[Rfam]
RNA sequence: AAAAAAUUUUUCGAUAUAAAACACUUAUGUCGAUAAAAGUUUGAGUCCUUU
Numbered sequence: 001a002a003a004a005a006a007u008u009u010u011u012c013g014a015u016a017u018a019a020a021a022c023a024c025u026u027a028u029g030u031c032g033a034u035a036a037a038a039g040u041u042u043g044a045g046u047c048c049u050u051u
Stems, first nucleotide, its partner, number of pairs: 011033007
Dot-bracket structure: ..........(((((((.........)))))))..................
Shown here is a 51-nucleotide RNA sequence from Gossypium australe, a member of the family "Plastid-atpF group II-D1 intron". Rfam's curators write: Plastid atpF is a non-coding RNA (ncRNA) recognised in plastids. It has been reported in the intron group II-D1 region of ATP synthase (atpF) genes. The literature on the family includes a 2023 paper in Plant Commun by Richter et al., "Retrograde signaling in plants: A critical review focusing on the GUN pathway and beyond". The base pairs follow the family's consensus structure, which was predicted with LocARNA. The source organism's lineage runs through Eukaryota, Euphyllophyta, eudicotyledons, Gunneridae and Gossypium. It scores 54 bits against the family's covariance model.